[Rfam]
RNA sequence: GCGUCCUGACCUUAGCCUGGCUGCUCCCCUCACCGGAGCUGUGGUGAUGGGGUCUGGGGGUGGACGCAGAUCAACUUACUCUCAUGUUAGGAGGGCUGCCAAAGACAUUUGCAAGCCCUUAAAGGCAAGAGAGGACACU
Numbered sequence: 001g002c003g004u005c006c007u008g009a010c011c012u013u014a015g016c017c018u019g020g021c022u023g024c025u026c027c028c029c030u031c032a033c034c035g036g037a038g039c040u041g042u043g044g045u046g047a048u049g050g051g052g053u054c055u056g057g058g059g060g061u062g063g064a065c066g067c068a069g070a071u072c073a074a075c076u077u078a079c080u081c082u083c084a085u086g087u088u089a090g091g092a093g094g095g096c097u098g099c100c101a102a103a104g105a106c107a108u109u110u111g112c113a114a115g116c117c118c119u120u121a122a123a124g125g126c127a128a129g130a131g132a133g134g135a136c137a138c139u
Base pairs, nucleotide, nucleotide: 002066003065004064005063006062010059011058023053024052025051028049030047031046032045033044079133080132081131082130083129087124088123091120092119093118094117095116096115097114098112099111101110102109103108
Rfam assigns this 139-nucleotide sequence from Lonchura striata to the family "Small Cajal body specific RNA 11". For this family Rfam cites "Cajal body-specific small nuclear RNAs: a novel class of 2'-O-methylation and pseudouridylation guide RNAs" (Darzacq et al., EMBO J, 2002). Rfam classes the family as a small Cajal body RNA. Gene Ontology terms of the family: Cajal body, nucleolus and RNA processing. Rfam describes the family as follows. scaRNAs are a specific class of small nuclear RNAs which localise to the Cajal bodies and guide the modification of RNA polymerase II transcribed spliceosomal RNAs U1, U2, U4, U5 and U12. ACA57 belongs to the H/ACA box class of guide RNAs as it has the predicted hairpin-hinge-hairpin-tail structure, conserved H/ACA-box motifs and is found associated with GAR1. ACA57 is predicted to guide the pseudouridylation of the U5 spliceosomal RNA at position U43.